[Rfam]
RNA sequence: CCUGCCGUUCGCUGUAAGUUGUAACAGUCGAAGCGUUUUAUAAGCAGCCGCUUGGUGUUACUUCUUACAGUGAGUGUUAUG
Numbered sequence: 001c002c003u004g005c006c007g008u009u010c011g012c013u014g015u016a017a018g019u020u021g022u023a024a025c026a027g028u029c030g031a032a033g034c035g036u037u038u039u040a041u042a043a044g045c046a047g048c049c050g051c052u053u054g055g056u057g058u059u060a061c062u063u064c065u066u067a068c069a070g071u072g073a074g075u076g077u078u079a080u081g
Base pairs, nucleotide, nucleotide: 006076007075008074009073010072011071012070013069015067016066017065027056028055029054030053032052033051034050